[Rfam]
About this RNA:
Rfam assigns this 102-nucleotide sequence from Alkalicoccus daliensis to the family "Purine riboswitch aptamer".
RNA sequence: UUAAAAAUAAUGUCGAAUGUUCGUAUAAUGUUGGGAAUAUGGCCCAAGAGUUUCUACCAGACUGCCUUAAAUGGUCUGACUACGAAUAAUGAAAUUAUUUUA
Numbered sequence: 001u002u003a004a005a006a007a008u009a010a011u012g013u014c015g016a017a018u019g020u021u022c023g024u025a026u027a028a029u030g031u032u033g034g035g036a037a038u039a040u041g042g043c044c045c046a047a048g049a050g051u052u053u054c055u056a057c058c059a060g061a062c063u064g065c066c067u068u069a070a071a072u073g074g075u076c077u078g079a080c081u082a083c084g085a086a087u088a089a090u091g092a093a094a095u096u097a098u099u100u101u102a
Stems, first nucleotide, its partner, number of pairs: 018088008029049001031047005058078007
Rfam links the family to the GO term purine nucleobase biosynthetic process.
Rfam's curators write: Riboswitches are metabolite binding domains within certain messenger RNAs that serve as precision sensors for their corresponding targets.
Pairs were carried over by alignment from the consensus structure, which is taken from published work.
A search with the family's covariance model found it, with a score of 91 bits.